[Rfam]
Rfam assigns this 105-nucleotide RNA sequence from Gossypium hirsutum to the family "Heliobacter pylori small RNA HPnc0580". NCBI's taxonomy places the organism under Eukaryota, Mesangiospermae, eudicotyledons, Malvaceae, Gossypium. For this family Rfam cites "The primary transcriptome of the major human pathogen Helicobacter pylori" (Sharma et al., Nature, 2010).
RNA sequence: GUACAGUAGUUUUUAUUUUUUGAUUAAAGAGAAAUGCUCGAUCGUUAGAUUUAACGAAGAAAAUCGGAACCCAAUACGUUAGGGCUCAAUUUCCUUGAAAAUCCU
Numbered sequence: 001g002u003a004c005a006g007u008a009g010u011u012u013u014u015a016u017u018u019u020u021u022g023a024u025u026a027a028a029g030a031g032a033a034a035u036g037c038u039c040g041a042u043c044g045u046u047a048g049a050u051u052u053a054a055c056g057a058a059g060a061a062a063a064u065c066g067g068a069a070c071c072c073a074a075u076a077c078g079u080u081a082g083g084g085c086u087c088a089a090u091u092u093c094c095u096u097g098a099a100a101a102u103c104c105u
Stems, first nucleotide, its partner, number of pairs: 016030005034064002038060002043056005081095004